Overview: A member of the RNA family "Actinobacteria sRNA Ms_IGR-5" from Saccharothrix australiensis, 186 nucleotides long.

RNA sequence: ACACGAGGAAGGAGGUGGUCCGAAGUUGUAUAGCUACAGGACUCGUCGUGAGGUGGCUGUCCGCUAGGACCGGCCUUUCCCAGGUGGUCCGGGCGAAUCCCAGGCAGCCACCCGGCCCCCGUGACCCCGAGCCCAGUCCAGCUCGGCCCGCACCCCGUGCGGGAAGCGGUCAGGGGGCCGUUUCAC
Number, nucleotide and partner (000 for none) at each position: 001a000002c000003a000004c000005g000006a000007g000008g000009a000010a000011g000012g000013a000014g061015g060016u059017g058018g057019u056020c000021c000022g000023a000024a000025g000026u000027u000028g000029u000030a000031u000032a000033g000034c000035u000036a000037c000038a000039g000040g000041a000042c000043u000044c000045g000046u000047c000048g000049u000050g000051a000052g000053g000054u000055g000056g019057c018058u017059g016060u015061c014062c095063g094064c093065u092066a000067g090068g089069a000070c087071c086072g085073g000074c000075c000076u000077u000078u000079c000080c000081c000082a000083g000084g000085u072086g071087g070088u000089c068090c067091g000092g065093g064094c063095g062096a000097a000098u000099c000100c000101c000102a000103g000104g000105c000106a000107g000108c000109c000110a000111c000112c000113c180114g179115g178116c177117c176118c175119c174120c173121g000122u172123g171124a170125c169126c168127c146128c145129g144130a143131g142132c141133c000134c000135a000136g000137u000138c000139c000140a000141g132142c131143u130144c129145g128146g127147c000148c000149c000150g000151c000152a000153c000154c000155c000156c000157g000158u000159g000160c000161g000162g000163g000164a000165a000166g000167c000168g126169g125170u124171c123172a122173g120174g119175g118176g117177g116178c115179c114180g113181u000182u000183u000184c000185a000186c000

Taxonomically the source falls in Saccharothrix (Bacteria, Bacillati, Actinomycetota, Pseudonocardiaceae).